[Rfam]
RNA sequence: GCGGAGUGGAGUAGCCAGGUAACUCGUUGGUCUCAUAAGCCAAAGAUCGUAGGUUCAAAUCCUACCUCUCGCA
Numbered sequence: 001g002c003g004g005a006g007u008g009g010a011g012u013a014g015c016c017a018g019g020u021a022a023c024u025c026g027u028u029g030g031u032c033u034c035a036u037a038a039g040c041c042a043a044a045g046a047u048c049g050u051a052g053g054u055u056c057a058a059a060u061c062c063u064a065c066c067u068c069u070c071g072c073a
Stems, first nucleotide, its partner, number of pairs: 001072003004068003009025004027043005049065005
The family of this 73-nucleotide RNA sequence from Emticicia sp. TH156 is "tRNA". By type it is a transfer RNA. Lineage of the source: Bacteria > Pseudomonadati > Bacteroidota > Leadbetterellaceae > Emticicia. Rfam's curators write: Transfer RNA (tRNA) molecules are approximately 80 nucleotides in length.